[Rfam]
RNA: Small nucleolar RNA Z105
Organism: Salix viminalis
RNA sequence: ACAUCGUGAUGAUAAAAUUUGAAUUUGUCCGAUUAAUUUUAUGAAAGGAUUAAUAACCUCCUACUCAUGCUAA
Numbered sequence: 001a002c003a004u005c006g007u008g009a010u011g012a013u014a015a016a017a018u019u020u021g022a023a024u025u026u027g028u029c030c031g032a033u034u035a036a037u038u039u040u041a042u043g044a045a046a047g048g049a050u051u052a053a054u055a056a057c058c059u060c061c062u063a064c065u066c067a068u069g070c071u072a073a
Base pairs, nucleotide, nucleotide: 006068007067008066009065028049029048